RNA sequence: AAAAAGGGUUUCAGUCAUGAGACACACACAUAGGGCAGCUUGAUUGCUCUAUGUGCAAAAUCAACAUCAGGAGAUGUCGGAAGCAUAAUUUUUUGGUACCUGGGCAGCUAGUGAUUGUUGAUUCUGGCGCCCAU
Dot-bracket structure: .......(((((.((........)).((((((((((((.....))))))))))))(.(.(((..........))).).)))))).................((((.(((((.((((...)))))))))))))..
Numbered sequence: 001a002a003a004a005a006g007g008g009u010u011u012c013a014g015u016c017a018u019g020a021g022a023c024a025c026a027c028a029c030a031u032a033g034g035g036c037a038g039c040u041u042g043a044u045u046g047c048u049c050u051a052u053g054u055g056c057a058a059a060a061u062c063a064a065c066a067u068c069a070g071g072a073g074a075u076g077u078c079g080g081a082a083g084c085a086u087a088a089u090u091u092u093u094u095g096g097u098a099c100c101u102g103g104g105c106a107g108c109u110a111g112u113g114a115u116u117g118u119u120g121a122u123u124c125u126g127g128c129g130c131c132c133a134u
Stems, first nucleotide, its partner, number of pairs: 008084005014025002027055012056079001058077001060075003102132004107128005113123004
A member of the RNA family "U11 spliceosomal RNA" from Phyllostomus discolor, 134 nucleotides long. By type it is a spliceosomal small nuclear RNA. The source organism's lineage runs through Eukaryota, Opisthokonta, Teleostomi, Amniota and Phyllostomus. The base pairs follow the family's consensus structure, which is taken from published work. Rfam 15.1 lists 2,595 matches to the family in 1,202 species. The match comes from Rfam's covariance-model search (94 bits).